[Rfam]
RNA: tRNA
RNA sequence: GGCGGUAUAGCUCAGUCGGUAGAGCAAACGGCUCAUAUCCGUUAGGUCAUAGGUUCAAGCCCUAUUGCCGCUA
Number, nucleotide and partner (000 for none) at each position: 001g072002g071003c070004g069005g068006u067007a066008u000009a000010g025011c024012u023013c022014a000015g000016u000017c000018g000019g000020u000021a000022g013023a012024g011025c010026a000027a043028a042029c041030g040031g039032c000033u000034c000035a000036u000037a000038u000039c031040c030041g029042u028043u027044a000045g000046g000047u000048c000049a065050u064051a063052g062053g061054u000055u000056c000057a000058a000059g000060c000061c053062c052063u051064a050065u049066u007067g006068c005069c004070g003071c002072u001073a000